RNA sequence: GUUAGCAAAAGGAUAAUCACCUACACGUAAGCAAUGAUCAUUAUGGUGACGGGGACGCAAAGCCAAGGGUCUAAGGUACUUAAUGUACUAUGAUAGUCUGGCUGCUAAA
Number, nucleotide and partner (000 for none) at each position: 001g050002u049003u048004a000005g000006c000007a000008a000009a000010a000011g000012g000013a000014u000015a000016a000017u000018c000019a000020c000021c000022u000023a000024c000025a000026c000027g000028u000029a000030a000031g000032c000033a000034a000035u000036g000037a000038u000039c000040a000041u000042u000043a000044u000045g000046g000047u000048g003049a002050c001051g000052g000053g000054g000055a000056c000057g000058c000059a000060a000061a103062g102063c101064c100065a000066a099067g098068g097069g094070u093071c092072u000073a000074a000075g000076g088077u087078a086079c085080u000081u000082a000083a000084u000085g079086u078087a077088c076089u000090a000091u000092g071093a070094u069095a000096g000097u068098c067099u066100g064101g063102c062103u061104g000105c000106u000107a000108a000109a000
Description:
The record is a 109-nucleotide RNA sequence from Anaerocolumna jejuensis, which matches "c-di-GMP-I riboswitch aptamer" in Rfam. A search with the family's covariance model found it, with a score of 47 bits.